Mammalian CPEB3 ribozyme: a 94-nucleotide RNA sequence from Pseudolycoriella hygida. The match comes from Rfam's covariance-model search (35 bits).

RNA sequence: GAAGGGUCAUGGGGAACACAUUAGCAGCCUCCACGUGGCGUUCCCUGGGUGAGUGUACACACAAGCACUGUGUGUACACUCAGCAAAUGCUAAA
Numbered sequence: 001g002a003a004g005g006g007u008c009a010u011g012g013g014g015a016a017c018a019c020a021u022u023a024g025c026a027g028c029c030u031c032c033a034c035g036u037g038g039c040g041u042u043c044c045c046u047g048g049g050u051g052a053g054u055g056u057a058c059a060c061a062c063a064a065g066c067a068c069u070g071u072g073u074g075u076a077c078a079c080u081c082a083g084c085a086a087a088u089g090c091u092a093a094a
Base pairs, nucleotide, nucleotide: 012045013044014043015042016041017040021093022092023091024090025089026088027039028038029037050082051081052080053079054078055077056076057075058074059073060072061071062070063069